Rfam assigns this 83-nucleotide RNA from Geosporobacter ferrireducens to the family "Clostridiales-2 RNA". The organism belongs to Geosporobacter, within Bacteria. It is annotated as a small RNA.
RNA sequence: UUGAUAUGGGGAGUACAGAGGGGAUUCCCCUCUGUCGCAGUCAGGAGGGUGCUCAGACUGCCCCCGCAGUCGUCGAAGGGAAC
Numbered sequence: 001u002u003g004a005u006a007u008g009g010g011g012a013g014u015a016c017a018g019a020g021g022g023g024a025u026u027c028c029c030c031u032c033u034g035u036c037g038c039a040g041u042c043a044g045g046a047g048g049g050u051g052c053u054c055a056g057a058c059u060g061c062c063c064c065c066g067c068a069g070u071c072g073u074c075g076a077a078g079g080g081a082a083c
Stems, first nucleotide, its partner, number of pairs: 015035008056071005